[Rfam]
RNA: c-di-GMP-I riboswitch aptamer
Organism: Monoglobus pectinilyticus
RNA sequence: UCUAAUAUUUGGCAAAGGAAAUGAAAGUUUCUGACGCAAAGUUAAGAGUCUAAGCUUCUGUUUUUGAAGUAUGAUUGUCUAGCUGCAAUG
Numbered sequence: 001u002c003u004a005a006u007a008u009u010u011g012g013c014a015a016a017g018g019a020a021a022u023g024a025a026a027g028u029u030u031c032u033g034a035c036g037c038a039a040a041g042u043u044a045a046g047a048g049u050c051u052a053a054g055c056u057u058c059u060g061u062u063u064u065u066g067a068a069g070u071a072u073g074a075u076u077g078u079c080u081a082g083c084u085g086c087a088a089u090g
Base pairs, nucleotide, nucleotide: 012037013036017032018031019030020029021028022027040084041083042082043081045080046079047078048075049074050073055069056068057067058066